RNA sequence: AUCUGACACGCCCCGACGGUGGCCAGUCUGGCUCCGACAUUCGGGCGCGGUUCGAUGAC
Numbered sequence: 001a002u003c004u005g006a007c008a009c010g011c012c013c014c015g016a017c018g019g020u021g022g023c024c025a026g027u028c029u030g031g032c033u034c035c036g037a038c039a040u041u042c043g044g045g046c047g048c049g050g051u052u053c054g055a056u057g058a059c
Stems, first nucleotide, its partner, number of pairs: 007049001009047005015042002018035002021033005